[Rfam]
RNA sequence: GGGACGUGACCCACCAGGGGGUCCCUGGUGGGUCACGUCCCACCAGGGACCCCCUGGUGGGACGUGACCCACCAGGGGGUCCC
Dot-bracket structure: (((.(((((((.((((..(...)..)))).)))))))))).....((((((((((((((((......))))))))))))))))
RNA: sodF sRNA